The family of this 53-nucleotide sequence from Malus domestica is "Plastid-atpF group II-D1 intron".
RNA sequence: UGAAUUUUUUUCGAUAUAAAACACUCAUGUCGAUAAAAUGAUUUGAAUCCUUA
Numbered sequence: 001u002g003a004a005u006u007u008u009u010u011u012c013g014a015u016a017u018a019a020a021a022c023a024c025u026c027a028u029g030u031c032g033a034u035a036a037a038a039u040g041a042u043u044u045g046a047a048u049c050c051u052u053a
Stems, first nucleotide, its partner, number of pairs: 011033007
Notes:
The family's consensus secondary structure was predicted with LocARNA. Gene Ontology term of the family: Group II intron splicing. Plastid atpF is a non-coding RNA (ncRNA) recognised in plastids. It has been reported in the intron group II-D1 region of ATP synthase (atpF) genes.